RNA sequence: ACAGAAAAAACGCAGGUAUUAUCCUGCGUUUUUUUCUUUUGGUACCUGUUCUCACAGGUACCUCAUGGGAGAGGAGAAACCGGAUGAAGAGCUUAUGGGGAAACGUAAGUCUUCUCCGCGG
Numbered sequence: 001a002c003a004g005a006a007a008a009a010a011c012g013c014a015g016g017u018a019u020u021a022u023c024c025u026g027c028g029u030u031u032u033u034u035u036c037u038u039u040u041g042g043u044a045c046c047u048g049u050u051c052u053c054a055c056a057g058g059u060a061c062c063u064c065a066u067g068g069g070a071g072a073g074g075a076g077a078a079a080c081c082g083g084a085u086g087a088a089g090a091g092c093u094u095a096u097g098g099g100g101a102a103a104c105g106u107a108a109g110u111c112u113u114c115u116c117c118g119c120g121g
Base pairs, nucleotide, nucleotide: 008031009030010029011028012027013026014025015024016023034069035068036067038065043060044059045058046057047056048055081118082117083116084115086114087113088112089111091110092109093108094107095106